[Rfam]
RNA sequence: AAGUGGGGACGACCCCACCGCUCCGACCACAAUCAGGGACGGCCCUG
Numbered sequence: 001a002a003g004u005g006g007g008g009a010c011g012a013c014c015c016c017a018c019c020g021c022u023c024c025g026a027c028c029a030c031a032a033u034c035a036g037g038g039a040c041g042g043c044c045c046u047g
Base pairs, nucleotide, nucleotide: 003018004017005016006015007014008013034047035046036045037044038043